[Rfam]
RNA sequence: AAUCGAAAAAGGCAAAUCUGCCGAAAGGUAGGGACGCAAAGCCACGGGUCUAAGGCGAGCGCCAGUUCGCUAUGAUAGCCGGGUUGCCGAA
Numbered sequence: 001a002a003u004c005g006a007a008a009a010a011g012g013c014a015a016a017u018c019u020g021c022c023g024a025a026a027g028g029u030a031g032g033g034a035c036g037c038a039a040a041g042c043c044a045c046g047g048g049u050c051u052a053a054g055g056c057g058a059g060c061g062c063c064a065g066u067u068c069g070c071u072a073u074g075a076u077a078g079c080c081g082g083g084u085u086g087c088c089g090a091a
Stems, first nucleotide, its partner, number of pairs: 012037002017032006040085004045081003048076003055070006

A member of the RNA family "c-di-GMP-I riboswitch aptamer" from Clostridiales bacterium PH28_bin88, 91 nucleotides long. It scores 89 bits against the family's covariance model.